This 166-nucleotide part of an RNA from Fusarium sp. NRRL 52700 belongs to the Rfam family "Ascomycota telomerase RNA". It scores 363 bits against the family's covariance model. The base pairs follow the family's consensus structure. A reference for the family is Qi et al. (2013), "The common ancestral core of vertebrate and fungal telomerase RNAs", Nucleic Acids Res.
[Rfam]
RNA sequence: CAAGUCUGUAAGGAUCAGAAGGUCUAAACAGAUCCCUCAGAUCCGCCGAAAGGUUGAUCUGAGAUGAAAGGGUGGUUUUUAUGGAUGUCUUUUGUCCACCCGUCAAAGCCCUCCAUCCCUCUUGCUGGCAAGAAAUUUGGAGAGGAAUCAAAAACUAGUCCUAGUU
Numbered sequence: 001c002a003a004g005u006c007u008g009u010a011a012g013g014a015u016c017a018g019a020a021g022g023u024c025u026a027a028a029c030a031g032a033u034c035c036c037u038c039a040g041a042u043c044c045g046c047c048g049a050a051a052g053g054u055u056g057a058u059c060u061g062a063g064a065u066g067a068a069a070g071g072g073u074g075g076u077u078u079u080u081a082u083g084g085a086u087g088u089c090u091u092u093u094g095u096c097c098a099c100c101c102g103u104c105a106a107a108g109c110c111c112u113c114c115a116u117c118c119c120u121c122u123u124g125c126u127g128g129c130a131a132g133a134a135a136u137u138u139g140g141a142g143a144g145g146a147a148u149c150a151a152a153a154a155c156u157a158g159u160c161c162u163a164g165u166u
Stems, first nucleotide, its partner, number of pairs: 007030003011025002014023003035066001036063008047052001084160003087155002090153005109145002111142004120133005